[Rfam]
RNA sequence: CUGCGGGGAUGAUCCCACCGAACUCUCUCUUGCUGAUGGUCCCGUGGGGAAAGUUUUCCUCGGACUCUGAGUGGC
Dot-bracket structure: ((((..................................................................)))).
A member of the RNA family "Small nucleolar RNA SNORD26" from Aramus guarauna, 75 nucleotides long. A reference for the family is Tycowski et al. (1996), "A mammalian gene with introns instead of exons generating stable RNA products", Nature. Rfam classes the family as a C/D-box small nucleolar RNA.